[Rfam]
RNA sequence: AGCAAAGUAAAUAACAUGUGUUAAGUGCUAGUGGACGCGAAGGUGCUACUAGACGAAACGAAAGUGCAGUGUGUUAUUGCCUUCGGUUGCA
Numbered sequence: 001a002g003c004a005a006a007g008u009a010a011a012u013a014a015c016a017u018g019u020g021u022u023a024a025g026u027g028c029u030a031g032u033g034g035a036c037g038c039g040a041a042g043g044u045g046c047u048a049c050u051a052g053a054c055g056a057a058a059c060g061a062a063a064g065u066g067c068a069g070u071g072u073g074u075u076a077u078u079g080c081c082u083u084c085g086g087u088u089g090c091a
Stems, first nucleotide, its partner, number of pairs: 002090004010078009019068003025054002028052007039083002042080001058065002
The family of this 91-nucleotide RNA sequence from Erysipelothrix sp. HDW6A is "THF (Tetrahydrofolate) riboswitch aptamer". It scores 56 bits against the family's covariance model. Rfam's curators write: Tetrahydrofolate (THF) riboswitch was first reported for Ames et al. as an RNA motif in 5' untranslated (5'-UTR)regions of folate transport and biosynthesis genes in Firmicutes genomes. Rfam links the family to the GO term tetrahydrofolate metabolic process. The base pairs follow the family's consensus structure, which is taken from published work.